[Rfam]
RNA sequence: UCGGGGCGAAGCAACCUCCCGGUCAGGCGCACCAGCGCCCAAGCGUUGC
Numbered sequence: 001u002c003g004g005g006g007c008g009a010a011g012c013a014a015c016c017u018c019c020c021g022g023u024c025a026g027g028c029g030c031a032c033c034a035g036c037g038c039c040c041a042a043g044c045g046u047u048g049c
Stems, first nucleotide, its partner, number of pairs: 001022006011049005026039005
RNA: chrB-b RNA